This 380-nucleotide RNA sequence from Shimia marina belongs to the Rfam family "Bacterial RNase P class A". The base pairs follow the family's consensus structure, which is taken from published work. Rfam classes the family as a ribozyme. Gene Ontology terms of the family: ribonuclease P activity, dimeric ribonuclease P complex and tRNA processing. A search with the family's covariance model found it, with a score of 308 bits. The organism belongs to Shimia, within Bacteria.
RNA sequence: ACAGAGGGCUGGAUGGCCGCAGGAGUGUAAGCUCGUGAGGAAAGUCCGGACUCCACAAGGCAACGGUGCCGGGUAACGCCCGGCCGGGGAAACCCGAGGGAAAGCGCCACAGAGAACAGACUACCCUGAUCCGUCAGGGAAAAGGUGAAACGGUGGGGUAAGAGCCCACCGCGCGGCUGGCAACAGCAGCGGCACGGCAAGCCCCACCGGGAGCAAUGCCAAAUAGGGAUCGCGCGUGGCCUUGGCCGCAGGGGUGUCUUGCCCCGAGCAGGUCCGGGUUGGCAGCUUGAGGCGUCUGGUAACAGGCGCCCUAGAUGAAUGGUCAUCGGCGCAGGGGCAACCCUGCGUCACAGAAUCCGGCUUACAGGCCCUCUGUGCGU
Numbered sequence: 001a002c003a004g005a006g007g008g009c010u011g012g013a014u015g016g017c018c019g020c021a022g023g024a025g026u027g028u029a030a031g032c033u034c035g036u037g038a039g040g041a042a043a044g045u046c047c048g049g050a051c052u053c054c055a056c057a058a059g060g061c062a063a064c065g066g067u068g069c070c071g072g073g074u075a076a077c078g079c080c081c082g083g084c085c086g087g088g089g090a091a092a093c094c095c096g097a098g099g100g101a102a103a104g105c106g107c108c109a110c111a112g113a114g115a116a117c118a119g120a121c122u123a124c125c126c127u128g129a130u131c132c133g134u135c136a137g138g139g140a141a142a143a144g145g146u147g148a149a150a151c152g153g154u155g156g157g158g159u160a161a162g163a164g165c166c167c168a169c170c171g172c173g174c175g176g177c178u179g180g181c182a183a184c185a186g187c188a189g190c191g192g193c194a195c196g197g198c199a200a201g202c203c204c205c206a207c208c209g210g211g212a213g214c215a216a217u218g219c220c221a222a223a224u225a226g227g228g229a230u231c232g233c234g235c236g237u238g239g240c241c242u243u244g245g246c247c248g249c250a251g252g253g254g255u256g257u258c259u260u261g262c263c264c265c266g267a268g269c270a271g272g273u274c275c276g277g278g279u280u281g282g283c284a285g286c287u288u289g290a291g292g293c294g295u296c297u298g299g300u301a302a303c304a305g306g307c308g309c310c311c312u313a314g315a316u317g318a319a320u321g322g323u324c325a326u327c328g329g330c331g332c333a334g335g336g337g338c339a340a341c342c343c344u345g346c347g348u349c350a351c352a353g354a355a356u357c358c359g360g361c362u363u364a365c366a367g368g369c370c371c372u373c374u375g376u377g378c379g380u
Stems, first nucleotide, its partner, number of pairs: 001376010011365001012327007020037002023034004042363003046360005051213004059260002062257001064209005069083005084098001085096004099204002104202002106198003121144002124139006152170006171193001172191003176187004217284004227275005251265005291310008